RNA sequence: CGAGUCGACCGGGCGGUCGCGUCGGCGGGUUCCAGCCCGCCGUCGAGGAACGUCCGGACUCCACAGGGCAGGGUGGUUGCUAACGGCAACCCGGGGUGACCCGCGGGACAGUGCCACAGAAAACAGACCGCCGUUCCCUAACGGGGACGGUAAGGGUGAAACGGUGGGGUAAGAGCCCACCAGCACCCCGGGUGACCGGGGUGGCUCGGUAAACCCCACCCGGAGCAAGGCCAAGAAGGGGCCGUCAUCCGCAGAGACGACGACCCGCGCAGGCGAUCGAGGGCUGCCCGCCCGAUGUCUGCGGGUAGGCCGCUGGAGCCUGUCGGUGACGGCAGGCCGAGAUGGAUGACCGCCGCCGGCGCGAGCCCUCGGGCCCGCGCCGCGCACAGAAUCCGGCGUACAGGUCGACUCGUCCG
Numbered sequence: 001c002g003a004g005u006c007g008a009c010c011g012g013g014c015g016g017u018c019g020c021g022u023c024g025g026c027g028g029g030u031u032c033c034a035g036c037c038c039g040c041c042g043u044c045g046a047g048g049a050a051c052g053u054c055c056g057g058a059c060u061c062c063a064c065a066g067g068g069c070a071g072g073g074u075g076g077u078u079g080c081u082a083a084c085g086g087c088a089a090c091c092c093g094g095g096g097u098g099a100c101c102c103g104c105g106g107g108a109c110a111g112u113g114c115c116a117c118a119g120a121a122a123a124c125a126g127a128c129c130g131c132c133g134u135u136c137c138c139u140a141a142c143g144g145g146g147a148c149g150g151u152a153a154g155g156g157u158g159a160a161a162c163g164g165u166g167g168g169g170u171a172a173g174a175g176c177c178c179a180c181c182a183g184c185a186c187c188c189c190g191g192g193u194g195a196c197c198g199g200g201g202u203g204g205c206u207c208g209g210u211a212a213a214c215c216c217c218a219c220c221c222g223g224a225g226c227a228a229g230g231c232c233a234a235g236a237a238g239g240g241g242c243c244g245u246c247a248u249c250c251g252c253a254g255a256g257a258c259g260a261c262g263a264c265c266c267g268c269g270c271a272g273g274c275g276a277u278c279g280a281g282g283g284c285u286g287c288c289c290g291c292c293c294g295a296u297g298u299c300u301g302c303g304g305g306u307a308g309g310c311c312g313c314u315g316g317a318g319c320c321u322g323u324c325g326g327u328g329a330c331g332g333c334a335g336g337c338c339g340a341g342a343u344g345g346a347u348g349a350c351c352g353c354c355g356c357c358g359g360c361g362c363g364a365g366c367c368c369u370c371g372g373g374c375c376c377g378c379g380c381c382g383c384g385c386a387c388a389g390a391a392u393c394c395g396g397c398g399u400a401c402a403g404g405u406c407g408a409c410u411c412g413u414c415c416g
Stems, first nucleotide, its partner, number of pairs: 001412010011401001012354007020045002023042006050399003054396005059225004066289004071221005076090005091105001092103004106216002111214002113210003128155002130151009163181006183205001184203008229311004269302006281293004318337008